The record is a 71-nucleotide sequence from Strongylocentrotus purpuratus, which matches "tRNA" in Rfam. The family's RNA type in Rfam is transfer RNA. It is one of the family's seed sequences. Transfer RNA (tRNA) molecules are approximately 80 nucleotides in length.
RNA sequence: AGUAAGGUGGCUGAGGGAAUAAGCGGUGGAUUGUAAAUCCAUAUACAAGGGUUAGACUCCUUUUCUUACUA
Numbered sequence: 001a002g003u004a005a006g007g008u009g010g011c012u013g014a015g016g017g018a019a020u021a022a023g024c025g026g027u028g029g030a031u032u033g034u035a036a037a038u039c040c041a042u043a044u045a046c047a048a049g050g051g052u053u054a055g056a057c058u059c060c061u062u063u064u065c066u067u068a069c070u071a
Stems, first nucleotide, its partner, number of pairs: 001070007010024003026042005047063005